Shown here is a 295-nucleotide RNA from Mucor lusitanicus, a member of the family "Metazoan signal recognition particle RNA". About the family: The signal recognition particle (SRP) is a universally conserved ribonucleoprotein. It is involved in the co-translational targeting of proteins to membranes. The eukaryotic SRP consists of a 300-nucleotide 7S RNA and six proteins: SRPs 72, 68, 54, 19, 14, and 9. Archaeal SRP consists of a 7S RNA and homologues of the eukaryotic SRP19 and SRP54 proteins. Eukaryotic and archaeal 7S RNAs have very similar secondary structures, as represented by this family. Eight helical elements fold into the Alu and S domains, separated by a long linker region. The Alu domain is thought to mediate the peptide chain elongation retardation function of the SRP. The universally conserved helix which interacts with the SRP54 M domain mediates signal sequence recognition. In eukaryotes and archaea, the SRP19-helix 6 complex is thought to be involved in SRP assembly and stabilises helix 8 for SRP54 binding. The Signal Recognition Particle Database (SRPDB) provides compilations of SRP components, with phylogenetic data and structural illustrations. Many sequences below the threshold for this family are clearly closely related, but are most likely to be SRP RNA derived pseudogenes. The human genome in particular is known to contain a large amount of SRP RNA related sequence, including Alu repeats. While the threshold of this family is set high so as to minimise the number of hits to such regions, it is likely that some remain. Its Rfam clan is "SRP clan". A reference for the family is Wild et al. (2002), "Towards the structure of the mammalian signal recognition particle", Curr Opin Struct Biol. NCBI's taxonomy places the organism under Eukaryota, Fungi, Mucoromycota, Mucoraceae, Mucor lusitanicus. A search with the family's covariance model found it, with a score of 121 bits.
[Rfam]
RNA sequence: ACCGGAAAGUUUCACGUCUUUCUGUAAGCAGAGUUGCGGUCUAUAAAGAGAUGAAUUCAUUCGUUGGUGGGCUCACGGUCUGCUUUGUGCUUUGUCGAAAACAGUGUCUUAGAGAGUCUGGUGUCAACAUUCGAGUCCGAGCGUAGGCUUGGAUUGGGAGGUUGUUCAAUACUGGGGAAAUGCCCGAGGGUAGCAAUACAGCAGGGAAAACCCAGAGCACUGGUUCGGCUGUGAGAUAGCACGUUGGAGAAGCAUUUAAGUAUACUACCACUACGGAUGGGAACUCCCUCUUUUU
Numbered sequence: 001a002c003c004g005g006a007a008a009g010u011u012u013c014a015c016g017u018c019u020u021u022c023u024g025u026a027a028g029c030a031g032a033g034u035u036g037c038g039g040u041c042u043a044u045a046a047a048g049a050g051a052u053g054a055a056u057u058c059a060u061u062c063g064u065u066g067g068u069g070g071g072c073u074c075a076c077g078g079u080c081u082g083c084u085u086u087g088u089g090c091u092u093u094g095u096c097g098a099a100a101a102c103a104g105u106g107u108c109u110u111a112g113a114g115a116g117u118c119u120g121g122u123g124u125c126a127a128c129a130u131u132c133g134a135g136u137c138c139g140a141g142c143g144u145a146g147g148c149u150u151g152g153a154u155u156g157g158g159a160g161g162u163u164g165u166u167c168a169a170u171a172c173u174g175g176g177g178a179a180a181u182g183c184c185c186g187a188g189g190g191u192a193g194c195a196a197u198a199c200a201g202c203a204g205g206g207a208a209a210a211c212c213c214a215g216a217g218c219a220c221u222g223g224u225u226c227g228g229c230u231g232u233g234a235g236a237u238a239g240c241a242c243g244u245u246g247g248a249g250a251a252g253c254a255u256u257u258a259a260g261u262a263u264a265c266u267a268c269c270a271c272u273a274c275g276g277a278u279g280g281g282a283a284c285u286c287c288c289u290c291u292u293u294u295u
Stems, first nucleotide, its partner, number of pairs: 001040003004023006011016001028037003043295001045293006053286002056283003060277005066272004077266003081262005087256001089253005095247001100245003104242004108235004113230002116226001118223007125164004130159003134155009165171001172215005181208001183206003190199003